[Rfam]
RNA sequence: CGAGUCGACCGGGCGGCCGCGGCGGGAGGAACCGGCGACCGGUGUCGCCAGGCCUCACGCCGAGGAAAGUCCGGACUCCACAGAGCAGGGCGGUUGCCAACAGCAACCCGAGGUGACUCGCGGGACAGUGCCACAGAGAACAGACCGCCGAUCGUCAUCGUGACGCGUCGGUGAGGGUGAAACGGUGCGGUAAGAGCGCACCAGCACCCCGGGUGACCGGGGUGGCUCGGUAAACCCCGCCCGGAGCAAGAUCGAAGGUCGCACCGUCGUUCGCGGUGGUGCGGCUGCGCAGGUGCCCGAGGGCUGCUCGCCCGAGCCUGCGGGUGGAUCGCUCGAGGUACCCGGUGACGGUGUGCCCAGAUGGAUGGUCGCCGCCCGGACGCUCGCGUCCGGGGACAGGAUCCGGCUUACAGGUCGACUCGCCCG
Numbered sequence: 001c002g003a004g005u006c007g008a009c010c011g012g013g014c015g016g017c018c019g020c021g022g023c024g025g026g027a028g029g030a031a032c033c034g035g036c037g038a039c040c041g042g043u044g045u046c047g048c049c050a051g052g053c054c055u056c057a058c059g060c061c062g063a064g065g066a067a068a069g070u071c072c073g074g075a076c077u078c079c080a081c082a083g084a085g086c087a088g089g090g091c092g093g094u095u096g097c098c099a100a101c102a103g104c105a106a107c108c109c110g111a112g113g114u115g116a117c118u119c120g121c122g123g124g125a126c127a128g129u130g131c132c133a134c135a136g137a138g139a140a141c142a143g144a145c146c147g148c149c150g151a152u153c154g155u156c157a158u159c160g161u162g163a164c165g166c167g168u169c170g171g172u173g174a175g176g177g178u179g180a181a182a183c184g185g186u187g188c189g190g191u192a193a194g195a196g197c198g199c200a201c202c203a204g205c206a207c208c209c210c211g212g213g214u215g216a217c218c219g220g221g222g223u224g225g226c227u228c229g230g231u232a233a234a235c236c237c238c239g240c241c242c243g244g245a246g247c248a249a250g251a252u253c254g255a256a257g258g259u260c261g262c263a264c265c266g267u268c269g270u271u272c273g274c275g276g277u278g279g280u281g282c283g284g285c286u287g288c289g290c291a292g293g294u295g296c297c298c299g300a301g302g303g304c305u306g307c308u309c310g311c312c313c314g315a316g317c318c319u320g321c322g323g324g325u326g327g328a329u330c331g332c333u334c335g336a337g338g339u340a341c342c343c344g345g346u347g348a349c350g351g352u353g354u355g356c357c358c359a360g361a362u363g364g365a366u367g368g369u370c371g372c373c374g375c376c377c378g379g380a381c382g383c384u385c386g387c388g389u390c391c392g393g394g395g396a397c398a399g400g401a402u403c404c405g406g407c408u409u410a411c412a413g414g415u416c417g418a419c420u421c422g423c424c425c426g
Stems, first nucleotide, its partner, number of pairs: 001422010011411001012373007020062005026056003067409003071406005076246004083309004088242005093107005108122001109120004123237002128235002130231003145176002147172005153165003184202006204226001205224008250330004289321006301313004337356001342351003
Dot-bracket structure: ((((((((((((((((((.(((((.(((.........................))).)))))....[[[.[[[[[((((...[[[[.((((((((((.....)))))(((((....)))).)((...(((((............(((((((.(((.......)))..)))))..)).......((((((.......)))))).(((((((((....)))))))).)..)))..)))))))))))))...((((...................................((((((......((((.]]]]))))..)))))).....))))......(....(((....)))....)..........)))))))............................]]]]]]]].).))))))))))....